[Rfam]
RNA sequence: AACUUAUCAAGAGCGACGGAGGGGAUUGGCCUGAUGAAGUCCGGCAACCUGCAAGGUGCUCCAUCCAACAAAAUGCAAUUGGAAGAUAAGGA
Dot-bracket structure: ..((((((....(.(((...(((..[[[[)))......))))((((.((.....))))))...(]]]](((.......)))..)))))))..
Numbered sequence: 001a002a003c004u005u006a007u008c009a010a011g012a013g014c015g016a017c018g019g020a021g022g023g024g025a026u027u028g029g030c031c032u033g034a035u036g037a038a039g040u041c042c043g044g045c046a047a048c049c050u051g052c053a054a055g056g057u058g059c060u061c062c063a064u065c066c067a068a069c070a071a072a073a074u075g076c077a078a079u080u081g082g083a084a085g086a087u088a089a090g091g092a
Stems, first nucleotide, its partner, number of pairs: 003090006013042001015041003021032003026068004043060004048056002064084001069081003
Rfam assigns this 92-nucleotide RNA sequence from Bacillus sp. V5-8f to the family "SAM riboswitch aptamer (S box leader)". The family's consensus secondary structure is taken from published work. Its family is annotated with regulation of gene expression in the Gene Ontology. NCBI's taxonomy places the organism under Bacteria, Bacillati, Bacillota, Caryophanales, Bacillus.